[Rfam]
Nucleotides: 047
Base pairs, nucleotide, nucleotide: 001016002015003014004013007044008043009042010041011040012039023034024033025032026031
Number, partner (000 for none) and nucleotide at each position: 001016g002015g003014c004013g005000a006000u007044g008043g009042u010041g011040u012039u013004c014003g015002c016001c017000a018000u019000a020000a021000a022000c023034g024033c025032u026031c027000u028000u029000c030000g031026g032025a033024g034023c035000u036000a037000a038000u039012g040011a041010c042009a043008c044007c045000u046000a047000c
Fluoride riboswitch aptamer (crcB RNA motif): a 47-nucleotide RNA sequence. Gene Ontology terms of the family: response to fluoride and positive regulation of gene expression. Rfam's curators put it in the seed alignment.